The record is a 354-nucleotide RNA sequence from Clostridiales bacterium S5-A14a, which matches "Bacterial RNase P class A" in Rfam. A search with the family's covariance model found it, with a score of 260 bits. It is annotated as a ribozyme. Taxonomically the source falls in Anaerovoracaceae (Bacteria, Bacillota, Clostridia, Peptostreptococcales).

RNA sequence: UAGGUAAACCAGGCAGUCGCGUGAUCUUCGAUUUUCGAAGCAUGAGGAAAGUCCGGGCUCCACAGGGUGAGGAUGCCAGAUAACUUCUGGCGUAGGUAACUAUAGGGAAAGUGCAACAGAAACAUUCCGCCGAAACGGGUAAUGCCGUGGUAAGGUUGAAAUGGUGAGGUAAGAGCUCACCGUCAUCUCGGAGACGAGGUGGACGUGUAAACCCCAUCCGGAGCAAGGUCAAAUAGGGCAUUAGGUUGGCGACCCGUCACAGCCCGUUAGGUAGACCGCAUGAGCGUGCAGCGAUGUUACGCCUUAGAUAGAUGAUUGCCUAAUACAGAACCCGGCUUAUGGUUUGCCUAUUUU
Numbered sequence: 001u002a003g004g005u006a007a008a009c010c011a012g013g014c015a016g017u018c019g020c021g022u023g024a025u026c027u028u029c030g031a032u033u034u035u036c037g038a039a040g041c042a043u044g045a046g047g048a049a050a051g052u053c054c055g056g057g058c059u060c061c062a063c064a065g066g067g068u069g070a071g072g073a074u075g076c077c078a079g080a081u082a083a084c085u086u087c088u089g090g091c092g093u094a095g096g097u098a099a100c101u102a103u104a105g106g107g108a109a110a111g112u113g114c115a116a117c118a119g120a121a122a123c124a125u126u127c128c129g130c131c132g133a134a135a136c137g138g139g140u141a142a143u144g145c146c147g148u149g150g151u152a153a154g155g156u157u158g159a160a161a162u163g164g165u166g167a168g169g170u171a172a173g174a175g176c177u178c179a180c181c182g183u184c185a186u187c188u189c190g191g192a193g194a195c196g197a198g199g200u201g202g203a204c205g206u207g208u209a210a211a212c213c214c215c216a217u218c219c220g221g222a223g224c225a226a227g228g229u230c231a232a233a234u235a236g237g238g239c240a241u242u243a244g245g246u247u248g249g250c251g252a253c254c255c256g257u258c259a260c261a262g263c264c265c266g267u268u269a270g271g272u273a274g275a276c277c278g279c280a281u282g283a284g285c286g287u288g289c290a291g292c293g294a295u296g297u298u299a300c301g302c303c304u305u306a307g308a309u310a311g312a313u314g315a316u317u318g319c320c321u322a323a324u325a326c327a328g329a330a331c332c333c334g335g336c337u338u339a340u341g342g343u344u345u346g347c348c349u350a351u352u353u354u
Base pairs, nucleotide, nucleotide: 001350002349003348004347005346006345007344008343009342010341011340012320013319014318015317016316017315018314020044021043022042023041025039027037049338050337051336053335054334055333056332057331058223059222060221061220066255067254071219072218073217074216075215076090077089078088079087080086091105092103093102094101095100106214107213111212112211113208114207115206127155128154129151130150131149135148136147137146138145163181164180165179166178167177168176182204183202184201185200186199187198188197189196190195227277228276229275230274237264238263239262247259248258249257250256284302285301286300287299288297289296290295